[Rfam]
Rfam assigns this 150-nucleotide sequence from Endozoicomonas elysicola to the family "Molybdenum/Tungsten riboswitch aptamer (Moco RNA motif)".
RNA sequence: UCAACAAGCGAGCGCCGAGCUUCGGUACCUAAAGGGGGAUUGCCCCUACGGACUGGAAGCCGCAGUCAGAGAAUGCAUAACUGGCUGCCAGGGCUGUAGAAGAAAUUCUGCUGCCUCCCGCGAUUGGAAAGGUGUUCUAUGCAACCAUUG
Numbered sequence: 001u002c003a004a005c006a007a008g009c010g011a012g013c014g015c016c017g018a019g020c021u022u023c024g025g026u027a028c029c030u031a032a033a034g035g036g037g038g039a040u041u042g043c044c045c046c047u048a049c050g051g052a053c054u055g056g057a058a059g060c061c062g063c064a065g066u067c068a069g070a071g072a073a074u075g076c077a078u079a080a081c082u083g084g085c086u087g088c089c090a091g092g093g094c095u096g097u098a099g100a101a102g103a104a105a106u107u108c109u110g111c112u113g114c115c116u117c118c119c120g121c122g123a124u125u126g127g128a129a130a131g132g133u134g135u136u137c138u139a140u141g142c143a144a145c146c147a148u149u150g
Stems, first nucleotide, its partner, number of pairs: 011136006019060005025054001028051002033047004062088008091116004096111006117127002